[Rfam]
RNA sequence: CCGGGAACAGCACGGCCGCAAAUCUGACUCGCCCGUACGGGCUUGGGAUUGCGGAAGUGC
Number, nucleotide and partner (000 for none) at each position: 001c000002c000003g000004g000005g000006a000007a000008c000009a000010g060011c059012a058013c057014g000015g000016c054017c053018g052019c051020a050021a049022a000023u000024c047025u046026g000027a000028c000029u000030c000031g042032c041033c040034c039035g000036u000037a000038c000039g034040g033041g032042c031043u000044u000045g000046g025047g024048a000049u021050u020051g019052c018053g017054g016055a000056a000057g013058u012059g011060c010